[Rfam]
RNA sequence: CUGUUGUAGCCAGCGGAUGUUUUAUUUGGUAGUUGCGCUUUAUUAAAUCUAUCAUAAGACACACGCGGCUAUAACAG
Numbered sequence: 001c002u003g004u005u006g007u008a009g010c011c012a013g014c015g016g017a018u019g020u021u022u023u024a025u026u027u028g029g030u031a032g033u034u035g036c037g038c039u040u041u042a043u044u045a046a047a048u049c050u051a052u053c054a055u056a057a058g059a060c061a062c063a064c065g066c067g068g069c070u071a072u073a074a075c076a077g
Stems, first nucleotide, its partner, number of pairs: 001077006008070004013066003018061002021059003027054005